[Rfam]
RNA sequence: AGACCGUCAUCAUCGGCUAAACCCGCGACGACAAUCGCAACGCCGAUAUUAACACGUCCUGUGUG
Numbered sequence: 001a002g003a004c005c006g007u008c009a010u011c012a013u014c015g016g017c018u019a020a021a022c023c024c025g026c027g028a029c030g031a032c033a034a035u036c037g038c039a040a041c042g043c044c045g046a047u048a049u050u051a052a053c054a055c056g057u058c059c060u061g062u063g064u065g
Stems, first nucleotide, its partner, number of pairs: 012047006025038004052064004
RNA: Bacillaceae-1 RNA
Organism: Lentibacillus salicampi